[Rfam]
RNA: GcvB RNA
RNA sequence: ACUUCCUAAGCCGGAACGAAAAGUUACAGAGUUUAGUUACUUUGGAACUUUUGGCUUUGUGGUUGUGAUGUUGUGUUUGCAAGUUGUCUGGAUAUACCAGACUUUGUAGCGUUAGCUACUGUUUUUUUCACUUCCUGUACAUUUACCCUGUCUGUCCAUAGUGAUUUUUGUGAUGCACCGCUCAAAUGCGGUGCUUUUUUUU
Numbered sequence: 001a002c003u004u005c006c007u008a009a010g011c012c013g014g015a016a017c018g019a020a021a022a023g024u025u026a027c028a029g030a031g032u033u034u035a036g037u038u039a040c041u042u043u044g045g046a047a048c049u050u051u052u053g054g055c056u057u058u059g060u061g062g063u064u065g066u067g068a069u070g071u072u073g074u075g076u077u078u079g080c081a082a083g084u085u086g087u088c089u090g091g092a093u094a095u096a097c098c099a100g101a102c103u104u105u106g107u108a109g110c111g112u113u114a115g116c117u118a119c120u121g122u123u124u125u126u127u128u129c130a131c132u133u134c135c136u137g138u139a140c141a142u143u144u145a146c147c148c149u150g151u152c153u154g155u156c157c158a159u160a161g162u163g164a165u166u167u168u169u170g171u172g173a174u175g176c177a178c179c180g181c182u183c184a185a186a187u188g189c190g191g192u193g194c195u196u197u198u199u200u201u202u
Stems, first nucleotide, its partner, number of pairs: 009056004015052002021050005027044006086102006106119005139171003175194007